[Rfam]
RNA sequence: AGCACUCACUACUGUAAGUCGUUCUGGACAAGAGCGUCUGCUAAAUGACUAUAA
Numbered sequence: 001a002g003c004a005c006u007c008a009c010u011a012c013u014g015u016a017a018g019u020c021g022u023u024c025u026g027g028a029c030a031a032g033a034g035c036g037u038c039u040g041c042u043a044a045a046u047g048a049c050u051a052u053a054a
Base pairs, nucleotide, nucleotide: 013043014041015040016039020036021035022034023033024032025031
RNA: UnaL2 LINE 3' element
Organism: Salmo trutta